The record is a 505-nucleotide part of an RNA from Ordospora colligata, which matches "Microsporidia small subunit ribosomal RNA" in Rfam.
The organism belongs to Ordospora, within Eukaryota.
Gene Ontology terms of the family: ribosome and structural constituent of ribosome.
Rfam's curators put it in the seed alignment.
For this family Rfam cites "Crystal structure of the ribosome at 5.5 A resolution" (Yusupov et al., Science, 2001).
Clan: SSU clan.
[Rfam]
RNA sequence: CACCAGGUUGAUUCUGCCUGACGUGGAUGCUAGUGUCUGAGAUUAAGCCAUGCAUGUGAGUGAAUGUAGUAAGCAGGAACUGCGGACGGCUCAGUAAGACUACGAUGAAAUGAUCUGCGAAGAAGAAGUAACGGCGGGAAACUGAAGAAGAGAGUUUUUGAGAAUACUUGAAGGGAUGCGGAGAAGUGAUUUUUGAAGUGAUGUUGAGUAUUUGAGCGGAGUGUGUUGUAGACCUAUCAGCUGGUAGCUAGGGUAAUGGCCUAGGUAGGCGACGACGGGAGACGGGGGAUUAGGGUUUGAUUCCGGAGAGGGAGCCUGAGAGAUGGCUACUACGUCCAAGGAUGGCAGCAGGCGCGAAACUUGCCUAAUCCUGUGGGGAGGCGGUUAUGAGACGUAUGAUAUUGUUAUGAAGCGGACGAUGAAAGAGUCAGUGGAUAUUGGAGGGCAAGUCGGGUGCCAGCAGCCGCGGUAAUACCUGCUCCGAUGGUGUCUAUGGUGAAUGCUG
Numbered sequence: 001c002a003c004c005a006g007g008u009u010g011a012u013u014c015u016g017c018c019u020g021a022c023g024u025g026g027a028u029g030c031u032a033g034u035g036u037c038u039g040a041g042a043u044u045a046a047g048c049c050a051u052g053c054a055u056g057u058g059a060g061u062g063a064a065u066g067u068a069g070u071a072a073g074c075a076g077g078a079a080c081u082g083c084g085g086a087c088g089g090c091u092c093a094g095u096a097a098g099a100c101u102a103c104g105a106u107g108a109a110a111u112g113a114u115c116u117g118c119g120a121a122g123a124a125g126a127a128g129u130a131a132c133g134g135c136g137g138g139a140a141a142c143u144g145a146a147g148a149a150g151a152g153a154g155u156u157u158u159u160g161a162g163a164a165u166a167c168u169u170g171a172a173g174g175g176a177u178g179c180g181g182a183g184a185a186g187u188g189a190u191u192u193u194u195g196a197a198g199u200g201a202u203g204u205u206g207a208g209u210a211u212u213u214g215a216g217c218g219g220a221g222u223g224u225g226u227u228g229u230a231g232a233c234c235u236a237u238c239a240g241c242u243g244g245u246a247g248c249u250a251g252g253g254u255a256a257u258g259g260c261c262u263a264g265g266u267a268g269g270c271g272a273c274g275a276c277g278g279g280a281g282a283c284g285g286g287g288g289a290u291u292a293g294g295g296u297u298u299g300a301u302u303c304c305g306g307a308g309a310g311g312g313a314g315c316c317u318g319a320g321a322g323a324u325g326g327c328u329a330c331u332a333c334g335u336c337c338a339a340g341g342a343u344g345g346c347a348g349c350a351g352g353c354g355c356g357a358a359a360c361u362u363g364c365c366u367a368a369u370c371c372u373g374u375g376g377g378g379a380g381g382c383g384g385u386u387a388u389g390a391g392a393c394g395u396a397u398g399a400u401a402u403u404g405u406u407a408u409g410a411a412g413c414g415g416a417c418g419a420u421g422a423a424a425g426a427g428u429c430a431g432u433g434g435a436u437a438u439u440g441g442a443g444g445g446c447a448a449g450u451c452g453g454g455u456g457c458c459a460g461c462a463g464c465c466g467c468g469g470u471a472a473u474a475c476c477u478g479c480u481c482c483g484a485u486g487g488u489g490u491c492u493a494u495g496g497u498g499a500a501u502g503c504u505g
Stems, first nucleotide, its partner, number of pairs: 004020005022495010033393002036390002039386002041355001047353003051350003056083002059081003065075002090308003100231007109224001114220005124156002132147001135144003233279003240270003245267002248264005283305004287298004310331002313328003333344004361383001363382003369378003412432002415429003438484006451478004460467002